About this RNA: Shown here is a 117-nucleotide RNA sequence from Papaver somniferum, a member of the family "mir-172 microRNA precursor family". Its family is annotated with RISC complex and miRNA-mediated post-transcriptional gene silencing in the Gene Ontology.

RNA sequence: GUUAUUGCUGAUGCAGCAUCAUCAAGAUUCUCAAACCAAGAAAACAGAGGCAAUAAUUACAUCGCCACCGUUGAUUUCAUUGCAUGUGAAUCUUGAUGAUGCCACAGCUGCAAACAA
Numbered sequence: 001g002u003u004a005u006u007g008c009u010g011a012u013g014c015a016g017c018a019u020c021a022u023c024a025a026g027a028u029u030c031u032c033a034a035a036c037c038a039a040g041a042a043a044a045c046a047g048a049g050g051c052a053a054u055a056a057u058u059a060c061a062u063c064g065c066c067a068c069c070g071u072u073g074a075u076u077u078c079a080u081u082g083c084a085u086g087u088g089a090a091u092c093u094u095g096a097u098g099a100u101g102c103c104a105c106a107g108c109u110g111c112a113a114a115c116a117a
Stems, first nucleotide, its partner, number of pairs: 010108001012106002016102015032086002
From the family's description: mir-172 has been experimentally verified in Arabidopsis thaliana. This family is thought to target mRNAs coding for APETALA2-like transcription factors. The mature sequence is excised from the 3' arm of the hairpin.
The organism belongs to Papaver, within Eukaryota.
The literature on the family includes a 2004 paper in Mol Cell by Jones-Rhoades and Bartel, "Computational Identification of Plant MicroRNAs and Their Targets, Including a Stress-Induced miRNA".